[Rfam]
RNA: TPP riboswitch aptamer (THI element)
Organism: Rhodospirillum centenum
RNA sequence: UCGUCAAACCCGGGGGUGCCGGGGAGAUCCGCCCCCGGCUGAGAUCACACCCGUCGAACCUGAUCCGGGUCAUGCCGGCGAAGGGAGGUCACCAUCAGCACCG
Numbered sequence: 001u002c003g004u005c006a007a008a009c010c011c012g013g014g015g016g017u018g019c020c021g022g023g024g025a026g027a028u029c030c031g032c033c034c035c036c037g038g039c040u041g042a043g044a045u046c047a048c049a050c051c052c053g054u055c056g057a058a059c060c061u062g063a064u065c066c067g068g069g070u071c072a073u074g075c076c077g078g079c080g081a082a083g084g085g086a087g088g089u090c091a092c093c094a095u096c097a098g099c100a101c102c103g
Base pairs, nucleotide, nucleotide: 008089009088010087011053012052013051014050017047018039019038020037021036022035023034024033059084060083061082065078066077067076068075